[Rfam]
RNA sequence: AUACAUAUCAAAAUGUUUUCUGCUAUUAGUUUGCAGGCUAAUGGCGUUCCUUUCUAACUACCGAAGGUAGUCUGCGAU
Numbered sequence: 001a002u003a004c005a006u007a008u009c010a011a012a013a014u015g016u017u018u019u020c021u022g023c024u025a026u027u028a029g030u031u032u033g034c035a036g037g038c039u040a041a042u043g044g045c046g047u048u049c050c051u052u053u054c055u056a057a058c059u060a061c062c063g064a065a066g067g068u069a070g071u072c073u074g075c076g077a078u
Stems, first nucleotide, its partner, number of pairs: 022045009032076005058070005
The record is a 78-nucleotide RNA sequence, which matches "Cyanobacterial ribosomal protein S1 leader" in Rfam. Rfam describes the family as follows. cyano-S1 is a ncRNA recognized in the 5-prime region of genes encoding 30S ribosomal protein S1, it has been proposed as an cis regulation element. Rfam's curators put it in the seed alignment. By type it is a cis-regulatory leader. Pairs were carried over by alignment from the consensus structure, which is taken from published work.